[Rfam]
RNA sequence: UAACCAUCCCGAGCGGCCGAGAGACCUGGAUCGACGACGCCGCAGCAACCCUCCGGACGGAGCCUUCCGUCUGGAACGGUGCUACUGCCAGGACCGAUGGAGA
Dot-bracket structure: (..(((((....(((((...((...[[[[.))......)))))((((.((.((((((((........))))))))..))))))...(]]]]...))))))..)
Numbered sequence: 001u002a003a004c005c006a007u008c009c010c011g012a013g014c015g016g017c018c019g020a021g022a023g024a025c026c027u028g029g030a031u032c033g034a035c036g037a038c039g040c041c042g043c044a045g046c047a048a049c050c051c052u053c054c055g056g057a058c059g060g061a062g063c064c065u066u067c068c069g070u071c072u073g074g075a076a077c078g079g080u081g082c083u084a085c086u087g088c089c090a091g092g093a094c095c096g097a098u099g100g101a102g103a
Stems, first nucleotide, its partner, number of pairs: 001103001004100005013043005021032002026091004044083004049079002052075008087095001
Background
The family of this 103-nucleotide sequence from Arthrobacter mobilis is "SAM riboswitch aptamer (S box leader)". About the family: The SAM riboswitch is found upstream of a number of genes which code for proteins involved in methionine or cysteine biosynthesis in Gram-positive bacteria.